[Rfam]
RNA sequence: GAACUUCUUCGUUAGGUGAGGCUCCUGUAUGAACAUAGGCCAUUGCCCGGAAACGUCGAAAGACGCCAAUGGGUAGAACAGGUAUUACCGAAUUAAGGUUUUACUUAAGAUGGCUGAGGUUGUUUUGACCUCUACGUUAUGCAGUGCCAAAGCUCAACGAUUGGGGAAGGUC
Numbered sequence: 001g002a003a004c005u006u007c008u009u010c011g012u013u014a015g016g017u018g019a020g021g022c023u024c025c026u027g028u029a030u031g032a033a034c035a036u037a038g039g040c041c042a043u044u045g046c047c048c049g050g051a052a053a054c055g056u057c058g059a060a061a062g063a064c065g066c067c068a069a070u071g072g073g074u075a076g077a078a079c080a081g082g083u084a085u086u087a088c089c090g091a092a093u094u095a096a097g098g099u100u101u102u103a104c105u106u107a108a109g110a111u112g113g114c115u116g117a118g119g120u121u122g123u124u125u126u127g128a129c130c131u132c133u134a135c136g137u138u139a140u141g142c143a144g145u146g147c148c149a150a151a152g153c154u155c156a157a158c159g160a161u162u163g164g165g166g167a168a169g170g171u172c
Stems, first nucleotide, its partner, number of pairs: 005168006011158002013096001015154003020148003025144008039114005045074005054065004081105004087099003116132005
The family of this 172-nucleotide RNA from Pelosinus sp. UFO1 is "M-box riboswitch aptamer (ykoK leader)". On this family, see Barrick et al., Proc Natl Acad Sci U S A 2004: "New RNA motifs suggest an expanded scope for riboswitches in bacterial genetic control". It scores 159 bits against the family's covariance model.